This 193-nucleotide RNA sequence from Streptomyces formicae belongs to the Rfam family "Streptomyces sRNA 4677". Located in the intergenic region between anti-sigma factor SCO4677 gene and a putative regulatory protein gene SCO4676. scr4677 expression requires the SCO4677 activity and scr4677 sRNA itself seem to affect the levels of the SCO4676-associated transcripts. For this family Rfam cites "Complex intra-operonic dynamics mediated by a small RNA in Streptomyces coelicolor" (Hindra et al., PLoS One, 2014). By type it is a small RNA. The organism belongs to Streptomyces, within Bacteria. The base pairs follow the family's consensus structure.
RNA sequence: AGCACGCGAAGUAGACGUCCCGCCUUGGGCGUUCACGGACGCGAGUCACCCACACCGGUGAACGCGUCCUAUCGCCAUGCCCGUUGAUGUUCGGCCUGCCUAGGCUCGGUGGCGACGACAUCACAUGAGACGGCCCCCGGCCGGGCGGCAUCCCGGGCCGAGGGCCUGACCACGGCAGGAAGGCGUAACUUCC
Number, nucleotide and partner (000 for none) at each position: 001a000002g000003c000004a000005c000006g000007c000008g000009a000010a000011g000012u000013a000014g000015a000016c000017g000018u000019c000020c000021c000022g000023c000024c000025u000026u000027g000028g000029g000030c000031g000032u000033u000034c000035a000036c000037g000038g000039a000040c000041g000042c000043g000044a000045g000046u061047c060048a059049c058050c057051c000052a000053c000054a000055c000056c000057g050058g049059u048060g047061a046062a000063c000064g000065c000066g000067u000068c000069c000070u000071a000072u000073c000074g000075c000076c111077a110078u108079g107080c000081c000082c000083g000084u000085u000086g000087a000088u000089g000090u000091u000092c000093g000094g000095c000096c000097u000098g000099c000100c000101u000102a000103g000104g000105c000106u000107c079108g078109g000110u077111g076112g000113c000114g000115a000116c000117g000118a000119c000120a000121u000122c000123a000124c000125a000126u000127g000128a000129g000130a000131c000132g166133g165134c164135c163136c162137c000138c160139g159140g158141c000142c155143g154144g153145g152146c000147g000148g000149c000150a000151u000152c145153c144154c143155g142156g000157g000158c140159c139160g138161a000162g136163g135164g134165c133166c132167u000168g000169a000170c000171c000172a000173c000174g000175g000176c000177a000178g193179g192180a191181a190182g189183g000184c000185g000186u000187a000188a000189c182190u181191u180192c179193c178